[Rfam]
RNA sequence: GGCAGGACUUCGCAUGGCGCGUAUCCCAUGAACUCCCCCAGGGCAGGAAUGCAGCAAGGGUCAGUGGGCUCUAGCGGGUGUGCGGAGUCCCCUUUAU
Numbered sequence: 001g002g003c004a005g006g007a008c009u010u011c012g013c014a015u016g017g018c019g020c021g022u023a024u025c026c027c028a029u030g031a032a033c034u035c036c037c038c039c040a041g042g043g044c045a046g047g048a049a050u051g052c053a054g055c056a057a058g059g060g061u062c063a064g065u066g067g068g069c070u071c072u073a074g075c076g077g078g079u080g081u082g083c084g085g086a087g088u089c090c091c092c093u094u095u096a097u
Stems, first nucleotide, its partner, number of pairs: 005090010015078001018076003025068005035060003043052003
RNA: Bacterial small signal recognition particle RNA